[Rfam]
RNA sequence: CUUUUUGCUACACCCUCACGACUAAUGACAACACUUAAUUCCCUUAAGCACUCUCAUUAGCCGCGCGAGUCCCUGUAGCGGAAGAGGUUAAAAUUUCAGAAACAGAACUUAAGUUUUUAACGUUCCGCUUCCCGCUUCGCUUCCUAGAAGAAAAGGGGCCCUAUUAGGCCCCUUUUC
Numbered sequence: 001c002u003u004u005u006u007g008c009u010a011c012a013c014c015c016u017c018a019c020g021a022c023u024a025a026u027g028a029c030a031a032c033a034c035u036u037a038a039u040u041c042c043c044u045u046a047a048g049c050a051c052u053c054u055c056a057u058u059a060g061c062c063g064c065g066c067g068a069g070u071c072c073c074u075g076u077a078g079c080g081g082a083a084g085a086g087g088u089u090a091a092a093a094u095u096u097c098a099g100a101a102a103c104a105g106a107a108c109u110u111a112a113g114u115u116u117u118u119a120a121c122g123u124u125c126c127g128c129u130u131c132c133c134g135c136u137u138c139g140c141u142u143c144c145u146a147g148a149a150g151a152a153a154a155g156g157g158g159c160c161c162u163a164u165u166a167g168g169c170c171c172c173u174u175u176u177c
Stems, first nucleotide, its partner, number of pairs: 001084004006080002010076003017067001019065002022060007090130002155172006

Source information:
SraG RNA: a 177-nucleotide RNA from Xenorhabdus bovienii. The match comes from Rfam's covariance-model search (104 bits). This RNA was discovered in E. coli during a large scale screen. Evidence was found for specific cleavage of this RNA. The organism belongs to Xenorhabdus bovienii, within Bacteria. The literature on the family includes a 2001 paper in Curr Biol by Argaman et al., "Novel small RNA-encoding genes in the intergenic regions of Escherichia coli".